This 202-nucleotide sequence from Urocolius indicus belongs to the Rfam family "Small nucleolar RNA SNORA74". Lineage of the source: Eukaryota > Deuterostomia > Euteleostomi > Aves > Urocolius. A search with the family's covariance model found it, with a score of 104 bits. The family has 24 seed sequences and 1,348 matches in Rfam 15.1. On this family, see Ganot et al., Genes Dev 1997: "The family of box ACA small nucleolar RNAs is defined by an evolutionarily conserved secondary structure and ubiquitous sequence elements essential for RNA accumulation". Its Rfam clan is "SNORA74 clan".
[Rfam]
RNA sequence: UCCAGUGGUAGUCAGCUGUCCAGAGCAAUACUGUGCCUGUGAUGGUGUUACACUGCUGGGAAAUAAAGAUCAGUCAUUUCUUCUGGCUGCUGUUGUCACCGUUCUGGAGACGGAUAGUGCCAGGAGAAGUGCCGUUGUGCUUCCCUGAGAGUGCACUGAAGAUUUGCUUUCUCUCUUUAGUGCUAGUCUGGAAGCAUACAUG
Number, nucleotide and partner (000 for none) at each position: 001u060002c059003c058004a057005g056006u055007g054008g053009u052010a000011g051012u050013c000014a000015g046016c045017u044018g043019u042020c041021c039022a038023g037024a000025g000026c000027a000028a000029u000030a000031c000032u000033g000034u000035g000036c000037c023038u022039g021040u000041g020042a019043u018044g017045g016046u015047g000048u000049u000050a012051c011052a009053c008054u007055g006056c005057u004058g003059g002060g001061a000062a000063a000064u000065a000066a000067a000068g135069a000070u000071c000072a000073g130074u129075c000076a000077u000078u000079u000080c000081u000082u000083c123084u122085g121086g120087c119088u000089g000090c000091u116092g115093u114094u112095g111096u110097c109098a000099c107100c106101g000102u000103u000104c000105u000106g100107g099108a000109g097110a096111c095112g094113g000114a093115u092116a091117g000118u000119g087120c086121c085122a084123g083124g000125a000126g000127a000128a000129g074130u073131g000132c000133c000134g000135u068136u000137g197138u196139g195140c194141u193142u192143c191144c190145c000146u000147g000148a000149g000150a000151g000152u000153g183154c182155a181156c000157u179158g178159a177160a176161g175162a174163u000164u000165u000166g000167c000168u000169u000170u000171c000172u000173c000174u162175c161176u160177u159178u158179a157180g000181u155182g154183c153184u000185a000186g000187u000188c000189u000190g144191g143192a142193a141194g140195c139196a138197u137198a000199c000200a000201u000202g000

From the family's description: U19 belongs to the H/ACA class of snoRNAs. snoRNAs bind a number of proteins (including dyskerin, Gar1p and Nop10p in the case of the H/ACA class) to form snoRNP complexes. This class are thought to guide the sites of modification of uridines to pseudouridines by forming direct base pairing interactions with substrate RNAs.